RNA sequence: CAUCCGUCCCCGGGAGAAUCCGGCCCAAAAGGCCGGUGCCGAAGGAGCAACCGCCCCGGCAAACUCUCAGGCAUCAGGACCGGGGAUGGUCA
Number, nucleotide and partner (000 for none) at each position: 001c000002a000003u000004c000005c000006g087007u086008c085009c084010c083011c082012g081013g080014g000015a000016g000017a000018a000019u000020c036021c035022g034023g033024c000025c000026c000027a000028a000029a000030a000031g000032g000033c023034c022035g021036g020037u000038g072039c071040c070041g068042a067043a000044g000045g066046a065047g064048c000049a000050a000051c059052c058053g000054c000055c000056c000057c000058g052059g051060c000061a000062a000063a000064c047065u046066c045067u042068c041069a000070g040071g039072c038073a000074u000075c000076a000077g000078g000079a000080c013081c012082g011083g010084g009085g008086a007087u006088g000089g000090u000091c000092a000